[Rfam]
RNA sequence: CGGAGCAGCCGCAGCUUGCAGAACGCAGAGGACGCCCGGUGCGGCGAACCCGCGGGCAGACGGACCGAAGGACUCACGCCGCCUCCACCUGUCGGCCGAGCGCGCAACCGUGCCCGCCGACCGGGCCCUGAGCCAGGGCGCACACGCUCCCGCCCCCCGCCCAGCCCAGGCGGGAGUUUACACCUCUCCCCGCCCGGGUGCUCGGGCCGCUGCUGUAAAGCCAACUUUGGAAAAAGUUUUUGGGGGGUGAUUUGAGCCUUGAGGUGCUCAGCCCUGUGCUUCGCGAUUUGGGGGGACCUUUCCAGAAAAUGUUGCAAAAAAGCUAAGCCGGCGGGCAGAGGAAAACGCCUUUAGCCAGAGAGUGAAGACGAAACAUCGACUGCUGUGUUCCUUUUCCUCUUGGAGGUUGGAGUCCCCUGGGCGCCCCCACACGGCUAGACGCCUCGGCUGGUUCGUUACGCAGCCCCCCGGCCGUGGAUGCUCACUCGGGCUUGGGAUCCGCCCAGGUAGCGGCCUCGGACCCAGGUCCCCGCACCCAGGUCCUCCCCAGUCCCCCAGCUACGGAGCCGGGGC
Numbered sequence: 001c002g003g004a005g006c007a008g009c010c011g012c013a014g015c016u017u018g019c020a021g022a023a024c025g026c027a028g029a030g031g032a033c034g035c036c037c038g039g040u041g042c043g044g045c046g047a048a049c050c051c052g053c054g055g056g057c058a059g060a061c062g063g064a065c066c067g068a069a070g071g072a073c074u075c076a077c078g079c080c081g082c083c084u085c086c087a088c089c090u091g092u093c094g095g096c097c098g099a100g101c102g103c104g105c106a107a108c109c110g111u112g113c114c115c116g117c118c119g120a121c122c123g124g125g126c127c128c129u130g131a132g133c134c135a136g137g138g139c140g141c142a143c144a145c146g147c148u149c150c151c152g153c154c155c156c157c158c159g160c161c162c163a164g165c166c167c168a169g170g171c172g173g174g175a176g177u178u179u180a181c182a183c184c185u186c187u188c189c190c191c192g193c194c195c196g197g198g199u200g201c202u203c204g205g206g207c208c209g210c211u212g213c214u215g216u217a218a219a220g221c222c223a224a225c226u227u228u229g230g231a232a233a234a235a236g237u238u239u240u241u242g243g244g245g246g247g248u249g250a251u252u253u254g255a256g257c258c259u260u261g262a263g264g265u266g267c268u269c270a271g272c273c274c275u276g277u278g279c280u281u282c283g284c285g286a287u288u289u290g291g292g293g294g295g296a297c298c299u300u301u302c303c304a305g306a307a308a309a310u311g312u313u314g315c316a317a318a319a320a321a322g323c324u325a326a327g328c329c330g331g332c333g334g335g336c337a338g339a340g341g342a343a344a345a346c347g348c349c350u351u352u353a354g355c356c357a358g359a360g361a362g363u364g365a366a367g368a369c370g371a372a373a374c375a376u377c378g379a380c381u382g383c384u385g386u387g388u389u390c391c392u393u394u395u396c397c398u399c400u401u402g403g404a405g406g407u408u409g410g411a412g413u414c415c416c417c418u419g420g421g422c423g424c425c426c427c428c429a430c431a432c433g434g435c436u437a438g439a440c441g442c443c444u445c446g447g448c449u450g451g452u453u454c455g456u457u458a459c460g461c462a463g464c465c466c467c468c469c470g471g472c473c474g475u476g477g478a479u480g481c482u483c484a485c486u487c488g489g490g491c492u493u494g495g496g497a498u499c500c501g502c503c504c505a506g507g508u509a510g511c512g513g514c515c516u517c518g519g520a521c522c523c524a525g526g527u528c529c530c531c532g533c534a535c536c537c538a539g540g541u542c543c544u545c546c547c548c549a550g551u552c553c554c555c556c557a558g559c560u561a562c563g564g565a566g567c568c569g570g571g572g573c
Stems, first nucleotide, its partner, number of pairs: 002222002005216005011210002014207005020202002025189001027187005033140005039134001041133002046128001049125001051104003056101002061098003065095004070090002077081001109123002144179001146177009157164001224237005244548004249543001250541005256535001263486004271481002274477005284470002291468005297463001314323002328358001330356003335352001337350002340346001362461003367456001369455004374450002376447004380438002382435007389411003393406005412422004488529004494523003498520004505516004553572004558567002
Overview:
The record is a 573-nucleotide RNA from Otolemur garnettii, which matches "c-sis internal ribosome entry site (IRES)" in Rfam. A search with the family's covariance model found it, with a score of 460 bits. The organism belongs to Otolemur, within Eukaryota. This family represents the c-sis 5'-UTR which contains three modules that can individually mediate internal ribosome entry. However, the full length sequence is required for maximal IRES activity. It is thought that the three IRES elements are somehow responsive to cellular changes and act to regulate the level of translation.